Background
Shown here is an 81-nucleotide RNA from Candidatus Methylospira mobilis, a member of the family "Group II catalytic intron D1-D4-1". The base pairs follow the family's consensus structure. From the family's description: Group II introns are found in rRNA, tRNA and mRNA of organelles in fungi, plants and protists, and also in mRNA in bacteria.

RNA sequence: UGAGAAACGCGCAAGCGAUUCUGACCGCCGGGCAGGAGUCAGCCGAGGGCAUAGUAGGCUGGUUGGCCCCAGUCGAAGGCC
Numbered sequence: 001u002g003a004g005a006a007a008c009g010c011g012c013a014a015g016c017g018a019u020u021c022u023g024a025c026c027g028c029c030g031g032g033c034a035g036g037a038g039u040c041a042g043c044c045g046a047g048g049g050c051a052u053a054g055u056a057g058g059c060u061g062g063u064u065g066g067c068c069c070c071a072g073u074c075g076a077a078g079g080c081c
Base pairs, nucleotide, nucleotide: 003022004021005020006019008017009016010015039046040045048081049080050079057074058073059072060071061070062069